[Rfam]
RNA: msiK RNA
Nucleotides: 057
Base pairs, nucleotide, nucleotide: 009049010048011047012046013045014044026043027042028041029040030039031038
Number, partner (000 for none) and nucleotide at each position: 001000g002000a003000c004000c005000a006000c007000c008000a009049c010048c011047u012046u013045u014044a015000c016000a017000a018000c019000g020000g021000a022000u023000c024000g025000u026043c027042c028041g029040g030039c031038a032000c033000g034000u035000u036000c037000c038031u039030g040029c041028c042027g043026g044014u045013g046012a047011a048010g049009g050000g051000g052000g053000c054000c055000u056000a057000c